Background:
A member of the RNA family "MIR162_2 microRNA precursor family" from Oryza sativa, 159 nucleotides long. Lineage of the source: Eukaryota > commelinids > Poaceae > Oryzoideae > Oryza.

[Rfam]
RNA sequence: GCCUGGGCGCAGUGGUUUAUCGAUCCCUUCCCUGCCUUGUGGCGCUGAUCCAGGAGCGGCGAAUUUCUUUGAGAGGGUGUUCUUUUUUUUUCUUCCUUUUGGUCCUUGUUGCAGCCAACGACAACGCGGGAAUCGAUCGAUAAACCUCUGCAUCCAGUU
Numbered sequence: 001g002c003c004u005g006g007g008c009g010c011a012g013u014g015g016u017u018u019a020u021c022g023a024u025c026c027c028u029u030c031c032c033u034g035c036c037u038u039g040u041g042g043c044g045c046u047g048a049u050c051c052a053g054g055a056g057c058g059g060c061g062a063a064u065u066u067c068u069u070u071g072a073g074a075g076g077g078u079g080u081u082c083u084u085u086u087u088u089u090u091u092c093u094u095c096c097u098u099u100u101g102g103u104c105c106u107u108g109u110u111g112c113a114g115c116c117a118a119c120g121a122c123a124a125c126g127c128g129g130g131a132a133u134c135g136a137u138c139g140a141u142a143a144a145c146c147u148c149u150g151c152a153u154c155c156a157g158u159u
Stems, first nucleotide, its partner, number of pairs: 003157005009151004014146012028132005034127002037124003
Its Rfam clan is "MIR167 microRNA precursor clan".